Record summary
A member of the RNA family "ALIL pseudoknot" from Aliiruegeria lutimaris, 117 nucleotides long. Taxonomically the source falls in Aliiruegeria (Bacteria, Pseudomonadati, Pseudomonadota, Rhodobacterales). A search with the family's covariance model found it, with a score of 111 bits. A reference for the family is Mazauric et al. (2008), "Apical loop-internal loop RNA pseudoknots: a new type of stimulator of -1 translational frameshifting in bacteria", J Biol Chem.
[Rfam]
RNA sequence: CGCGUAUUUUGCCCAGGCGGAGCUCGACCGCCCACUGAAGAGAUGAUUUCCUUCAUCGACGAGCACCGGAUGGAACACUGGGUCGAGCCGAUCUGCAAGGUGCUGCCGAUUGCCCCG
Numbered sequence: 001c002g003c004g005u006a007u008u009u010u011g012c013c014c015a016g017g018c019g020g021a022g023c024u025c026g027a028c029c030g031c032c033c034a035c036u037g038a039a040g041a042g043a044u045g046a047u048u049u050c051c052u053u054c055a056u057c058g059a060c061g062a063g064c065a066c067c068g069g070a071u072g073g074a075a076c077a078c079u080g081g082g083u084c085g086a087g088c089c090g091a092u093c094u095g096c097a098a099g100g101u102g103c104u105g106c107c108g109a110u111u112g113c114c115c116c117g
Stems, first nucleotide, its partner, number of pairs: 016032005078117001080115003089112002092109002095106003